[Rfam]
RNA sequence: ACAAUGAUACUUCCGGCGACGGCUGUCCACAGGAAUGGGCGGGGGUCAUAUCCCAUGG
Numbered sequence: 001a002c003a004a005u006g007a008u009a010c011u012u013c014c015g016g017c018g019a020c021g022g023c024u025g026u027c028c029a030c031a032g033g034a035a036u037g038g039g040c041g042g043g044g045g046u047c048a049u050a051u052c053c054c055a056u057g058g
Stems, first nucleotide, its partner, number of pairs: 012055001013022003023042003027038003043054003
Shown here is a 58-nucleotide RNA sequence, a member of the family "pemK RNA". By type it is a cis-regulatory element.